[Rfam]
Nucleotides: 297
Stems, first nucleotide, its partner, number of pairs: 001036003004019006024033003041295009053283001054281002058276002061273001064271003070266004075260004080255003085251001087249001090247001095246003101240001104234002107232005113225009124161002127158008136149002139146002163168001170215005181206003188199003
Number, partner (000 for none) and nucleotide at each position: 001036g002035u003034c004019a005018g006017u007016a008015g009014c010000a011000g012000g013000a014009g015008c016007u017006a018005u019004u020000a021000u022000a023000a024033c025032u026031c027000a028000a029000g030000c031026g032025g033024g034003g035002g036001c037000u038000u039000u040000a041295a042294a043293g044292u045291g046290g047289u048288u049287g050000g051000a052000u053283g054281u055280u056000g057000u058276c059275c060000u061273g062000c063000u064271u065270c066269u067000g068000a069000u070266g071265g072264g073263c074000c075260g076259g077258g078257u079000a080255u081254a082253c083000a084000a085251g086000u087249g088000c089000a090247a091000a092000u093000u094000a095246c096245u097244g098000a099000a100000g101240c102000a103000c104234c105233c106000g107232u108231u109230c110229c111228a112000a113225g114224u115223u116222g117221a118220g119219a120218g121217u122000u123000g124161g125160g126000u127158c128157a129156u130155g131154c132153g133152g134151u135000c136149c137148g138000u139146g140145c141000a142000a143000a144000g145140g146139c147000u148137u149136g150000a151134g152133c153132c154131g155130c156129g157128u158127g159000c160125c161124u162000g163168u164000u165000g166000g167000a168163g169000u170215g171214g172213a173212g174211g175000g176000u177000a178000u179000u180000g181206c182205g183204c184000c185000a186000u187000g188199c189198u190197g191000g192000c193000u194000u195000c196000a197190c198189a199188g200000c201000a202000c203000a204183g205182c206181g207000a208000u209000a210000a211174c212173c213172u214171c215170c216000c217121g218120c219119u220118u221117u222116c223115a224114g225113c226000a227000g228111u229110g230109g231108a232107a233105g234104g235000a236000u237000a238000a239000c240101g241000g242000a243000a244097c245096g246095g247090u248000g249087c250000u251085c252000c253082g254081u255080g256000g257078a258077u259076u260075c261000a262000a263073g264072c265071c266070c267000c268000a269066a270065g271064a272000u273061c274000c275059g276058g277000u278000c279000a280055a281054a282000u283053c284000c285000a286000a287049c288048a289047a290046c291045c292044a293043c294042u295041u296000c297000u
Shown here is a 297-nucleotide sequence from Kingdonia uniflora, a member of the family "Plant signal recognition particle RNA". Rfam 15.1 lists 4,988 matches to the family in 266 species. The family's consensus secondary structure is taken from published work. The organism belongs to Kingdonia, within Eukaryota. It scores 156 bits against the family's covariance model.